[Rfam]
RNA sequence: AGGCAACCACCUUUUGUAAGCCGCUCAAAAGGUAGGUGUUGUUCUGUUCGUAAAUCAAUUUCUUUUGCUCUUCAGACUUGUUGAGAUUCAUCAUCUAUGAAGCUGGUCUAGUAAGCACAAGAACAUU
Numbered sequence: 001a002g003g004c005a006a007c008c009a010c011c012u013u014u015u016g017u018a019a020g021c022c023g024c025u026c027a028a029a030a031g032g033u034a035g036g037u038g039u040u041g042u043u044c045u046g047u048u049c050g051u052a053a054a055u056c057a058a059u060u061u062c063u064u065u066u067g068c069u070c071u072u073c074a075g076a077c078u079u080g081u082u083g084a085g086a087u088u089c090a091u092c093a094u095c096u097a098u099g100a101a102g103c104u105g106g107u108c109u110a111g112u113a114a115g116c117a118c119a120a121g122a123a124c125a126u127u
Stems, first nucleotide, its partner, number of pairs: 002040004007036002009033008062121003067116003074109005080103003085095003